[Rfam]
RNA sequence: AAGCAAGCGAUGACAGGAGCAAGUAGGAUGACGAUUUCCCGCUGCAGAGAGCCGGUUGGUGCUGCAAAACCGGUGCGGAGCGUCGUCCGAAUGGGUCCUGGAGCAUGAAGCCGAAACGGACGCUGCCUUUAAGGCGGCGCUUUGGAGUAGGCGGAACGGCAGUUCCCCGUUACCGGAACGUCUAAGGUUUUACGUAUGAAGGCGACUUGUGCCCGGACGUAAAACGAAUUAGGGUGGUACCACGACCUCUCGUCCCUUGC
Numbered sequence: 001a002a003g004c005a006a007g008c009g010a011u012g013a014c015a016g017g018a019g020c021a022a023g024u025a026g027g028a029u030g031a032c033g034a035u036u037u038c039c040c041g042c043u044g045c046a047g048a049g050a051g052c053c054g055g056u057u058g059g060u061g062c063u064g065c066a067a068a069a070c071c072g073g074u075g076c077g078g079a080g081c082g083u084c085g086u087c088c089g090a091a092u093g094g095g096u097c098c099u100g101g102a103g104c105a106u107g108a109a110g111c112c113g114a115a116a117c118g119g120a121c122g123c124u125g126c127c128u129u130u131a132a133g134g135c136g137g138c139g140c141u142u143u144g145g146a147g148u149a150g151g152c153g154g155a156a157c158g159g160c161a162g163u164u165c166c167c168c169g170u171u172a173c174c175g176g177a178a179c180g181u182c183u184a185a186g187g188u189u190u191u192a193c194g195u196a197u198g199a200a201g202g203c204g205a206c207u208u209g210u211g212c213c214c215g216g217a218c219g220u221a222a223a224a225c226g227a228a229u230u231a232g233g234g235u236g237g238u239a240c241c242a243c244g245a246c247c248u249c250u251c252g253u254c255c256c257u258u259g260c
Stems, first nucleotide, its partner, number of pairs: 007104002015099004026088006040077003051074006106155001110152003157169003188224007231257004242253004
Record summary
Shown here is a 260-nucleotide RNA from Paenibacillus oceani, a member of the family "T-box leader". Rfam classes the family as a cis-regulatory leader. Taxonomically the source falls in Paenibacillus (Bacteria, Bacillati, Bacillota, Caryophanales). A reference for the family is Grundy et al. (1994), "Interaction between the acceptor end of tRNA and the T box stimulates antitermination in the Bacillus subtilis tyrS gene: a new role for the discriminator base", J Bacteriol.